[Rfam]
RNA: 7SK RNA
Organism: Pongo abelii
RNA sequence: AGAUAUGAGGGCGAUCUGACUGUGACAUCUGUCACUCUAUUGAUCGCCAGGGUUGAUUCAGCUGAUCUGGCUAGCUAGGCAGGAGUCCCCUUCCUCCCUCACCACUCCAUGUGCUUCCCUCUUGAAUCUGUGCACUCAGUGGAAGAGGACAGCCAUCCCCAAUAGAGGAAGGCCAGUCUUCAGUCAAGGGUAUACAAGUAGCUGCACUCCCCUGCUAGAACCUCCAAACAAGCUCUCAAGGUCCAUUUGUAAGAGAAUGUAGGGUAGUCAAGCUUUCAAGACUCCAGACACAUCCAAGUGAGCUGCUGCAUGUGGCAGUCUGCCUUUCUUU
Numbered sequence: 001a002g003a004u005a006u007g008a009g010g011g012c013g014a015u016c017u018g019a020c021u022g023u024g025a026c027a028u029c030u031g032u033c034a035c036u037c038u039a040u041u042g043a044u045c046g047c048c049a050g051g052g053u054u055g056a057u058u059c060a061g062c063u064g065a066u067c068u069g070g071c072u073a074g075c076u077a078g079g080c081a082g083g084a085g086u087c088c089c090c091u092u093c094c095u096c097c098c099u100c101a102c103c104a105c106u107c108c109a110u111g112u113g114c115u116u117c118c119c120u121c122u123u124g125a126a127u128c129u130g131u132g133c134a135c136u137c138a139g140u141g142g143a144a145g146a147g148g149a150c151a152g153c154c155a156u157c158c159c160c161a162a163u164a165g166a167g168g169a170a171g172g173c174c175a176g177u178c179u180u181c182a183g184u185c186a187a188g189g190g191u192a193u194a195c196a197a198g199u200a201g202c203u204g205c206a207c208u209c210c211c212c213u214g215c216u217a218g219a220a221c222c223u224c225c226a227a228a229c230a231a232g233c234u235c236u237c238a239a240g241g242u243c244c245a246u247u248u249g250u251a252a253g254a255g256a257a258u259g260u261a262g263g264g265u266a267g268u269c270a271a272g273c274u275u276u277c278a279a280g281a282c283u284c285c286a287g288a289c290a291c292a293u294c295c296a297a298g299u300g301a302g303c304u305g306c307u308g309c310a311u312g313u314g315g316c317a318g319u320c321u322g323c324c325u326u327u328c329u330u331u
Stems, first nucleotide, its partner, number of pairs: 002107002006101006013093002018090001024087003028083006035074002037070003042067004046062002116171001118168004122139004140162001142160001147158003201273003207267002210264006222255003228250005296331003300326003304322001305319005